Rfam assigns this 53-nucleotide RNA sequence to the family "Na+ riboswitch aptamer (DUF1646)".
RNA sequence: GGUUGGGCGAAUUAUAUUCGUUUACAAGCAUCUGACUUCUGGGGUGGGAAGUC
Numbered sequence: 001g002g003u004u005g006g007g008c009g010a011a012u013u014a015u016a017u018u019c020g021u022u023u024a025c026a027a028g029c030a031u032c033u034g035a036c037u038u039c040u041g042g043g044g045u046g047g048g049a050a051g052u053c
Stems, first nucleotide, its partner, number of pairs: 003027003006022006034053007
Pairs were carried over by alignment from the consensus structure, which is taken from published work.